[Rfam]
RNA sequence: UUGCCCACUUGAGGUUGUUAAUGUCUUGAGUGGCCAUUAUUGAGGGGUAGACUAUGAUCCUCUCUGCAAACCUGGGUCAGGGGUCUCCCCCCUGCCUCUGAACUUGCCGAGAGGAACAAUA
Numbered sequence: 001u002u003g004c005c006c007a008c009u010u011g012a013g014g015u016u017g018u019u020a021a022u023g024u025c026u027u028g029a030g031u032g033g034c035c036a037u038u039a040u041u042g043a044g045g046g047g048u049a050g051a052c053u054a055u056g057a058u059c060c061u062c063u064c065u066g067c068a069a070a071c072c073u074g075g076g077u078c079a080g081g082g083g084u085c086u087c088c089c090c091c092c093u094g095c096c097u098c099u100g101a102a103c104u105u106g107c108c109g110a111g112a113g114g115a116a117c118a119a120u121a
Base pairs, nucleotide, nucleotide: 002049003048004047005046006045009042014038016036017035019030058115060113061112062111063110064109072100074098075097076096078094080092081091082090
Rfam assigns this 121-nucleotide RNA from Perca fluviatilis to the family "Small nucleolar RNA SNORA26". The source organism's lineage runs through Eukaryota, Gnathostomata, Euteleosteomorpha, Percinae and Perca. The match comes from Rfam's covariance-model search (41 bits). The family's consensus secondary structure was predicted with RNAalifold. The snoRNA HBI-6 belong to the H/ACA family of snoRNAs, guiding the pseudouridylation of position U4522 if the 28S rRNA. HBI-6 is the human orthologue of mouse MBI-6 snoRNA.